[Rfam]
Nucleotides: 110
Base pairs, nucleotide, nucleotide: 003108004107005106010098011097012096013095014094015093016092017091018090019089020087021086022085026057027056029055030054031053032052033051034050035049036048040104041103042102043101044100061084063082064081065080066079067078068077069076
Number, partner (000 for none) and nucleotide at each position: 001000a002000u003108c004107a005106g006000a007000g008000u009000a010098g011097g012096a013095a014094a015093u016092a017091a018090a019089g020087c021086g022085u023000u024000a025000a026057g027056u028000g029055c030054u031053g032052a033051a034050u035049a036048g037000a038000u039000g040104g041103g042102a043101u044100g045000u046000u047000g048036c049035u050034a051033u052032u053031u054030g055029g056027a057026c058000g059000a060000a061084g062000g063082a064081u065080a066079a067078g068077u069076u070000a071000a072000a073000c074000g075000a076069g077068g078067c079066u080065u081064a082063u083000a084061c085022g086021c087020g088000g089019u090018u091017u092016u093015a094014u095013u096012u097011u098010c099000g100044c101043a102042u103041u104040c105000g106005c107004u108003g109000c110000a
Shown here is a 110-nucleotide sequence from Enterococcus rivorum, a member of the family "THF (Tetrahydrofolate) riboswitch aptamer". NCBI's taxonomy places the organism under Bacteria, Bacillati, Bacillota, Bacilli, Enterococcus. Tetrahydrofolate (THF) riboswitch was first reported for Ames et al. as an RNA motif in 5' untranslated (5'-UTR)regions of folate transport and biosynthesis genes in Firmicutes genomes. It scores 77 bits against the family's covariance model.